[Rfam]
Rfam assigns this 126-nucleotide RNA from Aphanomyces stellatus to the family "U11 spliceosomal RNA". The base pairs follow the family's consensus structure, which is taken from published work. Taxonomically the source falls in Aphanomyces (Eukaryota, Sar, Oomycota, Saprolegniales).
RNA sequence: AAAAAGGGUAGGCCUUUUCUGAGGCUGGACUGCAUGCAGUCGCAGGUGAAUCGCGAUCAAGAGAUUUGCCCUACAGAAUUUAUUCCACGCUGGCAGUGUCGGCUUCAUGAGCUAAGCAUUGCCAGC
Dot-bracket structure: .......(((((((((....))))((((((((....))))).)))(((((((..........))))))))))))................(((((((((..((((...))))...)))))))))..
Numbered sequence: 001a002a003a004a005a006g007g008g009u010a011g012g013c014c015u016u017u018u019c020u021g022a023g024g025c026u027g028g029a030c031u032g033c034a035u036g037c038a039g040u041c042g043c044a045g046g047u048g049a050a051u052c053g054c055g056a057u058c059a060a061g062a063g064a065u066u067u068g069c070c071c072u073a074c075a076g077a078a079u080u081u082a083u084u085c086c087a088c089g090c091u092g093g094c095a096g097u098g099u100c101g102g103c104u105u106c107a108u109g110a111g112c113u114a115a116g117c118a119u120u121g122c123c124a125g126c
Stems, first nucleotide, its partner, number of pairs: 008074005013024004025045003028041005046069007091124009102112004